Shown here is a 90-nucleotide RNA from Paenibacillus lycopersici, a member of the family "c-di-GMP-I riboswitch aptamer". It scores 69 bits against the family's covariance model. The base pairs follow the family's consensus structure, which is taken from published work. Taxonomically the source falls in Paenibacillus (Bacteria, Bacillati, Bacillota, Bacilli).
RNA sequence: CUAUGACAAGGGCAAACCAUUUGGAAACAAUGGGGCGCAAAGCCAUGGCCUAAGGUAUCCAUGCGAUACGAUGGCAGCAAGGCUGCCGAG
Numbered sequence: 001c002u003a004u005g006a007c008a009a010g011g012g013c014a015a016a017c018c019a020u021u022u023g024g025a026a027a028c029a030a031u032g033g034g035g036c037g038c039a040a041a042g043c044c045a046u047g048g049c050c051u052a053a054g055g056u057a058u059c060c061a062u063g064c065g066a067u068a069c070g071a072u073g074g075c076a077g078c079a080a081g082g083c084u085g086c087c088g089a090g
Base pairs, nucleotide, nucleotide: 012038013037017033018032019031020030022029023028041084042083043082044081046079047078048075049074050073055069056068057067058066